Record summary:
This 119-nucleotide RNA sequence from Actinobaculum suis belongs to the Rfam family "FMN riboswitch aptamer (RFN element)". It scores 92 bits against the family's covariance model.
[Rfam]
RNA sequence: AAGGUGCUCCGGGGUCAGUGCAAGUCUGAACCGGCGGUGAUAGUCCGCGACCCGCGCAAGCGGUUGACGAGGUGAAAAUCCUCGACCGACGGUAAUAGUCCGGAUGGGAGGCGCACCGG
Numbered sequence: 001a002a003g004g005u006g007c008u009c010c011g012g013g014g015u016c017a018g019u020g021c022a023a024g025u026c027u028g029a030a031c032c033g034g035c036g037g038u039g040a041u042a043g044u045c046c047g048c049g050a051c052c053c054g055c056g057c058a059a060g061c062g063g064u065u066g067a068c069g070a071g072g073u074g075a076a077a078a079u080c081c082u083c084g085a086c087c088g089a090c091g092g093u094a095a096u097a098g099u100c101c102g103g104a105u106g107g108g109a110g111g112c113g114c115a116c117c118g119g
Base pairs, nucleotide, nucleotide: 003117004116005115006114007113009111010110016028017027018026030099031098032088033087034048035047036046037045043086044085052063053062068084069083070082071081072080090102091101092100